[Rfam]
RNA sequence: AGUGGGAACACACGACCGCAAAUCUGACUCGCCGUCCGAUUGGGCGGCUCCGGGAUUGCGGACGUGU
Numbered sequence: 001a002g003u004g005g006g007a008a009c010a011c012a013c014g015a016c017c018g019c020a021a022a023u024c025u026g027a028c029u030c031g032c033c034g035u036c037c038g039a040u041u042g043g044g045c046g047g048c049u050c051c052g053g054g055a056u057u058g059c060g061g062a063c064g065u066g067u
Stems, first nucleotide, its partner, number of pairs: 010067004016061006024054002031048007

The family of this 67-nucleotide sequence from Halapricum salinum is "S15-Halobacteria ribosomal protein leader". On this family, see Eckert and Weinberg, BMC Microbiol 2020: "Discovery of 20 novel ribosomal leader candidates in bacteria and archaea". Taxonomically the source falls in Halapricum (Archaea, Methanobacteriota, Halobacteriales, Haloarculaceae).